[Rfam]
RNA sequence: CGGACAGGGGGGUUCCCUGCCCCUCGGCGGGGCCUGUCCGGCCGGCCGCGCAAGACGCGUGGCCAGUGGUUGUCGCUCGGGGGUGAUCGCCG
Numbered sequence: 001c002g003g004a005c006a007g008g009g010g011g012g013u014u015c016c017c018u019g020c021c022c023c024u025c026g027g028c029g030g031g032g033c034c035u036g037u038c039c040g041g042c043c044g045g046c047c048g049c050g051c052a053a054g055a056c057g058c059g060u061g062g063c064c065a066g067u068g069g070u071u072g073u074c075g076c077u078c079g080g081g082g083g084u085g086a087u088c089g090c091c092g
Base pairs, nucleotide, nucleotide: 001040002039003038004037005036006035007034008033015032016031017030018029019028020027021026044064045063046062047061048060049059050058051057